[Rfam]
Source information: Potassium channel RNA editing signal: a 114-nucleotide sequence from Pogona vitticeps. The base pairs follow the family's consensus structure, which is taken from published work. On this family, see Bhalla et al., Nat Struct Mol Biol 2004: "Control of human potassium channel inactivation by editing of a small mRNA hairpin". NCBI's taxonomy places the organism under Eukaryota, Chordata, Sarcopterygii, Sauria, Pogona. Rfam classes the family as a cis-regulatory element. Rfam's curators write: This family represents a group of sequences related to the human potassium channel Kv1.1 hairpin element which directs the efficient modification of an adenosine to inosine by an adenosine deaminase acting on RNA (ADAR). It scores 101 bits against the family's covariance model.
RNA sequence: UUGGGCUAUGGUGACAUGUACCCUCAGACAUGGUCAGGCAUGUUGGUAGGAGCCUUGUGCGCCUUGGCCGGUGUGUUGACCAUUGCCAUGCCUGUGCCAGUCAUUGUCAACAAC
Numbered sequence: 001u002u003g004g005g006c007u008a009u010g011g012u013g014a015c016a017u018g019u020a021c022c023c024u025c026a027g028a029c030a031u032g033g034u035c036a037g038g039c040a041u042g043u044u045g046g047u048a049g050g051a052g053c054c055u056u057g058u059g060c061g062c063c064u065u066g067g068c069c070g071g072u073g074u075g076u077u078g079a080c081c082a083u084u085g086c087c088a089u090g091c092c093u094g095u096g097c098c099a100g101u102c103a104u105u106g107u108c109a110a111c112a113a114c
Stems, first nucleotide, its partner, number of pairs: 002113001004111001008107004013102003018097004037077004049063002